RNase MRP: a 270-nucleotide sequence from Bifiguratus adelaidae. The family's RNA type in Rfam is ribozyme. The family has 66 seed sequences and 3,510 matches in Rfam 15.1. The family's consensus secondary structure is taken from published work.
RNA sequence: AAGCACCGCUCCAAUAAUCGCCGUCAGAGCAAUACAUACAGACUGCAUUGAUGCGUGUCUCUUAUGCUCUGGGGAAAGUCCCCGGACAACAUGGCAGAAAGUGCCACCCGUAAUGGGUUACUCUGUAGCAUCGGCUUCUCUGGCUUUUGGCUAGGCGCGACGAUAGGAGCGUCUGAGGCUGGUCUAUGGAUUUGUUGGUCAUAGCAUAGUUAUGCGAUUGCGAUAGGCUUCAGCUUAUCGUCACUCAAUGGGGCUCAUUCUGGAGGUGCU
Numbered sequence: 001a002a003g004c005a006c007c008g009c010u011c012c013a014a015u016a017a018u019c020g021c022c023g024u025c026a027g028a029g030c031a032a033u034a035c036a037u038a039c040a041g042a043c044u045g046c047a048u049u050g051a052u053g054c055g056u057g058u059c060u061c062u063u064a065u066g067c068u069c070u071g072g073g074g075a076a077a078g079u080c081c082c083c084g085g086a087c088a089a090c091a092u093g094g095c096a097g098a099a100a101g102u103g104c105c106a107c108c109c110g111u112a113a114u115g116g117g118u119u120a121c122u123c124u125g126u127a128g129c130a131u132c133g134g135c136u137u138c139u140c141u142g143g144c145u146u147u148u149g150g151c152u153a154g155g156c157g158c159g160a161c162g163a164u165a166g167g168a169g170c171g172u173c174u175g176a177g178g179c180u181g182g183u184c185u186a187u188g189g190a191u192u193u194g195u196u197g198g199u200c201a202u203a204g205c206a207u208a209g210u211u212a213u214g215c216g217a218u219u220g221c222g223a224u225a226g227g228c229u230u231c232a233g234c235u236u237a238u239c240g241u242c243a244c245u246c247a248a249u250g251g252g253g254c255u256c257a258u259u260c261u262g263g264a265g266g267u268g269c270u
Base pairs, nucleotide, nucleotide: 002270003269004268005267006266009265010264011263012262013261016219017218018217019216020215021214024072025071026070027069028068029067030066042056043055045054046053047052077255078254080253081252082251083250093105094104095103096102106118107117108116109115110114120191122189126186127185128184130183131182132181137178138177139176140175150170151169159164221240222239223238224237225236226235
Overview:
Taxonomically the source falls in Bifiguratus (Eukaryota, Opisthokonta, Mucoromycota, Mucoromycotina).